[Rfam]
Nucleotides: 045
Stems, first nucleotide, its partner, number of pairs: 006021006
Number, partner (000 for none) and nucleotide at each position: 001000a002000c003000a004000a005000c006021g007020g008019c009018c010017c011016u012000u013000u014000u015000c016011a017010g018009g019008g020007c021006c022000a023000c024000c025000a026000a027000u028000a029000u030000u031000u032000u033000c034000a035000a036000a037000a038000a039000g040000u041000c042000u043000a044000a045000a

The family of this 45-nucleotide RNA from Mytilus coruscus is "Histone 3' UTR stem-loop". It is annotated as a cis-regulatory element. The base pairs follow the family's consensus structure, which is taken from published work. The source organism's lineage runs through Eukaryota, Autobranchia, Mytiloidea, Mytilinae and Mytilus.